[Rfam]
RNA sequence: CGAGUAAGACAGACAGUCGCGUGGGCAGGCCGAAAGGCCGUCCAUGAGGAAAGUCCGGGCUCCAUAGGGCAAGGAUAACGGGUAACGCCCGCCGAAGGCGACUUCAGGAAAAGUGCAACAGAGAUAUACCGCCGCCAUAGCUUCUCUGUGGCGGUAAGGGUGGAAAGGUGCGGUAAGAGCGCACCCGACGGCUGGGAACUGUCCGUCGCUGUAAACUCUAUCCGGAGCAACACCGUGGGAGGACACAGAAGGCCGGCCCGGCCGUCCUCAGGAGGUGGCUUGAGCGUACCGGCAACGGUGCGCCUAGAUAGAUGACUGUCAAAUACAGAACCCGGCUUACAGUUUUGCUCGUGAA
Numbered sequence: 001c002g003a004g005u006a007a008g009a010c011a012g013a014c015a016g017u018c019g020c021g022u023g024g025g026c027a028g029g030c031c032g033a034a035a036g037g038c039c040g041u042c043c044a045u046g047a048g049g050a051a052a053g054u055c056c057g058g059g060c061u062c063c064a065u066a067g068g069g070c071a072a073g074g075a076u077a078a079c080g081g082g083u084a085a086c087g088c089c090c091g092c093c094g095a096a097g098g099c100g101a102c103u104u105c106a107g108g109a110a111a112a113g114u115g116c117a118a119c120a121g122a123g124a125u126a127u128a129c130c131g132c133c134g135c136c137a138u139a140g141c142u143u144c145u146c147u148g149u150g151g152c153g154g155u156a157a158g159g160g161u162g163g164a165a166a167g168g169u170g171c172g173g174u175a176a177g178a179g180c181g182c183a184c185c186c187g188a189c190g191g192c193u194g195g196g197a198a199c200u201g202u203c204c205g206u207c208g209c210u211g212u213a214a215a216c217u218c219u220a221u222c223c224g225g226a227g228c229a230a231c232a233c234c235g236u237g238g239g240a241g242g243a244c245a246c247a248g249a250a251g252g253c254c255g256g257c258c259c260g261g262c263c264g265u266c267c268u269c270a271g272g273a274g275g276u277g278g279c280u281u282g283a284g285c286g287u288a289c290c291g292g293c294a295a296c297g298g299u300g301c302g303c304c305u306a307g308a309u310a311g312a313u314g315a316c317u318g319u320c321a322a323a324u325a326c327a328g329a330a331c332c333c334g335g336c337u338u339a340c341a342g343u344u345u346u347g348c349u350c351g352u353g354a355a
Stems, first nucleotide, its partner, number of pairs: 001351010012320007020046007028038001051338003055335005060227004068259002073223005079091004093107001094105004108218002113216002115212003129159002131155009167185006187207005192201001194199001231277003239269006251263004284303008

Shown here is a 355-nucleotide sequence from Oscillibacter sp. 1-3, a member of the family "Bacterial RNase P class A". Ribonuclease P (RNase P) is a ubiquitous endoribonuclease, found in archaea, bacteria and eukarya as well as chloroplasts and mitochondria. A search with the family's covariance model found it, with a score of 280 bits. Rfam links the family to the GO terms dimeric ribonuclease P complex, ribonuclease P activity and tRNA processing.